Notes: The family of this 69-nucleotide RNA sequence is "DUF3800-IX RNA". Rfam's curators put it in the seed alignment.
[Rfam]
RNA sequence: AACCUGUAUCUUGAACUGUCACCGGAUGGUGGCGUGGCUAGGACAUCUAGCAUAGAGACAUGGUUGGAA
Numbered sequence: 001a002a003c004c005u006g007u008a009u010c011u012u013g014a015a016c017u018g019u020c021a022c023c024g025g026a027u028g029g030u031g032g033c034g035u036g037g038c039u040a041g042g043a044c045a046u047c048u049a050g051c052a053u054a055g056a057g058a059c060a061u062g063g064u065u066g067g068a069a
Base pairs, nucleotide, nucleotide: 001065002064003063004062006061007060009058010057011056012055017034018033019032020031021030022029023028037051038050039049040048
Actinobacteria, Firmicutes (1 example), Nitrospirae, Proteobacteria, Verrucomicrobia (1 example).